Description
Bacillus sRNA ncr1575: a 208-nucleotide sequence from Aneurinibacillus migulanus. It scores 139 bits against the family's covariance model. The family's RNA type in Rfam is small RNA.
[Rfam]
RNA sequence: UACUAUUGAACGAAAGGGAUGAUGGGUGGACAAUGGAUAACUAACCUAAUUUUUAACAUUUGAAAUAGUAUAUUUCAGAUAAUAAAACUUAGGAUUAGUCUGCCCAUUUUUCCAUAUACUAAAUAGCUGCGAUACUAAAUAGCUUAUUUGCGUACGGCAAAAAUGCGAUUUGACUAAUCCUUCCAAAAUUAUUUGGGAGGAUUUUUUA
Numbered sequence: 001u002a003c004u005a006u007u008g009a010a011c012g013a014a015a016g017g018g019a020u021g022a023u024g025g026g027u028g029g030a031c032a033a034u035g036g037a038u039a040a041c042u043a044a045c046c047u048a049a050u051u052u053u054u055a056a057c058a059u060u061u062g063a064a065a066u067a068g069u070a071u072a073u074u075u076c077a078g079a080u081a082a083u084a085a086a087a088c089u090u091a092g093g094a095u096u097a098g099u100c101u102g103c104c105c106a107u108u109u110u111u112c113c114a115u116a117u118a119c120u121a122a123a124u125a126g127c128u129g130c131g132a133u134a135c136u137a138a139a140u141a142g143c144u145u146a147u148u149u150g151c152g153u154a155c156g157g158c159a160a161a162a163a164u165g166c167g168a169u170u171u172g173a174c175u176a177a178u179c180c181u182u183c184c185a186a187a188a189u190u191a192u193u194u195g196g197g198a199g200g201a202u203u204u205u206u207u208a
Stems, first nucleotide, its partner, number of pairs: 016113004023106004029100003042097003046093002049090001052087003058080009119150001121148001126143004176203011